About this RNA
Rfam assigns this 557-nucleotide part of an RNA from Massiliimalia timonensis to the family "Bacterial large subunit ribosomal RNA". Taxonomically the source falls in Massiliimalia (Bacteria, Bacillota, Clostridia, Eubacteriales). For this family Rfam cites "Crystal structure of the ribosome at 5.5 A resolution" (Yusupov et al., Science, 2001).
RNA sequence: UAGAAAGGGCGCAGGGCGAAUGCCUUGGCAUUAGGAGCCGAAGAAGGACGUGGCAAACUACGAAAAGCUGCGGGGAGUCGUAAGCAGACAUUGAUCCGCAGAUAUCCGAAUGGAGCAAUCCGGUACGAGUAACGUCGUAUCAACGUAUACUGAAUCCAUAGGUAUGCGUGGGGAACCGCCUGAACUGAAACAUCUAAGUAGGGCGAGGAAAAGAAAUCAACCGAGAUUCCGCAAGUAGUGGCGAGCGAACGCGGAGAAGGCCAAACCAGAGGUAGAAAUAUCUUUGGGGUUGCGGACUGCAUUUAAGAUUGCUGAGAGUUAGCUGAAGUGCAUGGGAAGGCACACCAGAGAAUGUGAGAGUCAUGUAAGCGAAAACUCAAGGCACUGAGCAGGAUCCAGAGUACCGCGGGACACGUGAAACCCCGUGGGAAGCAGGGGGGACCACCCUCCAAGCCUAAACACUACCUAAUGACCGAUAGCGAAAAGUACUGUGAAGGAAAGGUGAAAAGCACCCCGGGAGGGGAGUGAAAGAGAACCUGAAACCCUGUGCCUACAAG
Dot-bracket structure: ......((((((((((.....(((..(((((((((((((......((((((........))).....(((((((..(((.......))).....)))))))...)))....(((....)))(((((((......))))))).(((((((((.........))))))))).))...((((((.....((....))......))))).).........((....))..((((((.....((.....))....)))))..((((....(((((((........)))))))......((.((((.......(.((((..(((((.(((...((((........))))..(...).(((.......)))...)))...)))))..)))).)..))))...))......(((((((...........)))))))......(((((......)))))..))))..)..)).))))))).))..............((....))....)).........((((....)))).............).....)))))))))).....